[Rfam]
Nucleotides: 098
Base pairs, nucleotide, nucleotide: 011026012025013024014023015022016021032071033070034069035068036067050065051064052063053062054061055060085098086097
Number, partner (000 for none) and nucleotide at each position: 001000c002000g003000a004000a005000u006000g007000c008000a009000c010000a011026g012025c013024g014023u015022c016021a017000u018000c019000c020000g021016u022015g023014a024013c025012g026011u027000c028000a029000a030000a031000c032071u033070c034069g035068u036067c037000u038000g039000u040000a041000a042000u043000c044000c045000g046000g047000c048000g049000u050065c051064a052063u053062a054061c055060c056000g057000c058000a059000a060055g061054g062053u063052a064051u065050g066000u067036g068035a069034c070033g071032a072000c073000u074000u075000u076000a077000c078000a079000c080000c081000u082000g083000c084000c085098g086097g087000c088000c089000a090000u091000g092000u093000g094000u095000a096000u097086u098085c
DUF3577 RNA: a 98-nucleotide RNA. It scores 54 bits against the family's covariance model.